[Rfam]
RNA sequence: GGAAUAUAAAAAACCGUCUCUUAACUUUUAGCUAGAAAAACUAAGAACAAGAGUAGGUUCUUAAUUUUUCUAGUUAAAAGUUAAGAGACGGUUUCUUAUAUUCC
Number, nucleotide and partner (000 for none) at each position: 001g104002g103003a102004a101005u100006a099007u098008a097009a096010a000011a094012a093013a092014c091015c090016g089017u088018c087019u086020c085021u084022u083023a082024a081025c080026u079027u078028u077029u076030a075031g074032c073033u072034a071035g070036a069037a068038a067039a066040a000041c000042u063043a062044a061045g060046a059047a058048c000049a000050a000051g000052a000053g000054u000055a000056g000057g000058u047059u046060c045061u044062u043063a042064a000065u000066u039067u038068u037069u036070c035071u034072a033073g032074u031075u030076a029077a028078a027079a026080g025081u024082u023083a022084a021085g020086a019087g018088a017089c016090g015091g014092u013093u012094u011095c000096u009097u008098a007099u006100a005101u004102u003103c002104c001
RNA: MIR9563 microRNA precursor family
Organism: Brassica cretica